[Rfam]
RNA sequence: GGACAUAAACGCGCUCGUAAUAAGCGGAUCGGACCCGGGGGCGGUACCCGGCGUCUCCACCAAUACUCUGGUCAUUUGCCAGCGAUGGGGACGAAACAGGAUCGACGAACGUCUAAAGGGGUAUUGCUUUGUCCCGGUGAGUUACCACCGUUAUCGGUACGCAAAAGCUAGUUGCAAAUGACAACAAAGCACCGAUGGCCCUCGCAGCGUAA
Dot-bracket structure: (((((.......((((........((..(((...(((((.......)))))(((((((............................)))))))............))).)).......)))).......)))))((((........))))..............................................................

Description
The family of this 212-nucleotide sequence from Loktanella fryxellensis is "permuted transfer-messenger RNA". The match comes from Rfam's covariance-model search (134 bits). The organism belongs to Loktanella, within Bacteria. Bacterial tmRNA, also known as 10Sa RNA or SsrA, is named for its dual tRNA and mRNA-like properties. Its role is to liberate the mRNA from a stalled ribosome. To accomplish this part of the tmRNA is used as a reading frame that ends in a translation stop signal. The broken mRNA is replaced in the ribosome by the tmRNA and translation of the tmRNA leads to addition of a proteolysis tag to the incomplete protein enabling recognition by a protease. The base pairs follow the family's consensus structure, which is taken from published work. On this family, see Williams and Bartel, RNA 1996: "Phylogenetic analysis of tmRNA secondary structure".